Eukaryotic large subunit ribosomal RNA: a 387-nucleotide part of an RNA from Colletotrichum asianum. Lineage of the source: Eukaryota > Opisthokonta > Sordariomycetes > Glomerellales > Colletotrichum gloeosporioides species complex.
[Rfam]
RNA sequence: AACCUUAUCGUAAUAGUAAUUAAGCUUAGUAUAAGAGGAACUACUUAUUUAGAUAAUUAGUUUUUGCAGCUAUCUAACUAGGUAGUGCUAUAAAGCUACUAUCUACUAGAUAAUAGCUAAACGCUUCUAAGUUAGAAUCUAUACUAGAACGUAAUAAUACCUCCUAUAUAUACAGAUAGACAUAAAUAGGCUUUAGCUUAACGUCUUAGUAGGUAAUUCCUCUACUACUCUCAAAGCAAGUAGUAGUAUUUUGUAAAUUAUAAUUUCAGCAUAAGCAGGGUUAAAUCCUUUAUAGAUAACUUAGAUAUAUAAAAAGGUCCUAUAAGUAGUAGAGUAGCCUUAUUGUUAUAAUCUACUAAAGGUAAGCCCUCCUUUACCUUAAUUUCC
Numbered sequence: 001a002a003c004c005u006u007a008u009c010g011u012a013a014u015a016g017u018a019a020u021u022a023a024g025c026u027u028a029g030u031a032u033a034a035g036a037g038g039a040a041c042u043a044c045u046u047a048u049u050u051a052g053a054u055a056a057u058u059a060g061u062u063u064u065u066g067c068a069g070c071u072a073u074c075u076a077a078c079u080a081g082g083u084a085g086u087g088c089u090a091u092a093a094a095g096c097u098a099c100u101a102u103c104u105a106c107u108a109g110a111u112a113a114u115a116g117c118u119a120a121a122c123g124c125u126u127c128u129a130a131g132u133u134a135g136a137a138u139c140u141a142u143a144c145u146a147g148a149a150c151g152u153a154a155u156a157a158u159a160c161c162u163c164c165u166a167u168a169u170a171u172a173c174a175g176a177u178a179g180a181c182a183u184a185a186a187u188a189g190g191c192u193u194u195a196g197c198u199u200a201a202c203g204u205c206u207u208a209g210u211a212g213g214u215a216a217u218u219c220c221u222c223u224a225c226u227a228c229u230c231u232c233a234a235a236g237c238a239a240g241u242a243g244u245a246g247u248a249u250u251u252u253g254u255a256a257a258u259u260a261u262a263a264u265u266u267c268a269g270c271a272u273a274a275g276c277a278g279g280g281u282u283a284a285a286u287c288c289u290u291u292a293u294a295g296a297u298a299a300c301u302u303a304g305a306u307a308u309a310u311a312a313a314a315a316g317g318u319c320c321u322a323u324a325a326g327u328a329g330u331a332g333a334g335u336a337g338c339c340u341u342a343u344u345g346u347u348a349u350a351a352u353c354u355a356c357u358a359a360a361g362g363u364a365a366g367c368c369c370u371c372c373u374u375u376a377c378c379u380u381a382a383u384u385u386c387c
Base pairs, nucleotide, nucleotide: 005157006156007155008154010152011151014146015145016144017143019049021047022046023045024044050105051104052103053102054101058098059097060096065092066091068089069088070085071084072083073082074081075080107141108140109139114134115133116132117131118130163279164278165277167275169273283385284384285383286382288304289303310376311375312374313373316368317367319362320361326356327355328354329353331352334349335348336347337346338345